SAM riboswitch aptamer (S box leader): a 108-nucleotide sequence from Virgibacillus necropolis. Gene Ontology term of the family: regulation of gene expression. The source organism's lineage runs through Bacteria, Bacillati, Bacillota, Bacillaceae and Virgibacillus. Pairs were carried over by alignment from the consensus structure, which is taken from published work.
RNA sequence: ACCUUAUCAAGAGUCGGGGAAGGAGUCUGGUCCUGUGAUCCCGCAGCAACCGUUAUUUGUAACAAGGUGCUAAUUCCAGCAAGCAAGCAUUUGCUUGAAAGAUGAGAU
Numbered sequence: 001a002c003c004u005u006a007u008c009a010a011g012a013g014u015c016g017g018g019g020a021a022g023g024a025g026u027c028u029g030g031u032c033c034u035g036u037g038a039u040c041c042c043g044c045a046g047c048a049a050c051c052g053u054u055a056u057u058u059g060u061a062a063c064a065a066g067g068u069g070c071u072a073a074u075u076c077c078a079g080c081a082a083g084c085a086a087g088c089a090u091u092u093g094c095u096u097g098a099a100a101g102a103u104g105a106g107a108u
Stems, first nucleotide, its partner, number of pairs: 001108001003106006013044001015043004022033003027079004045071004050067002052063004075100001080097006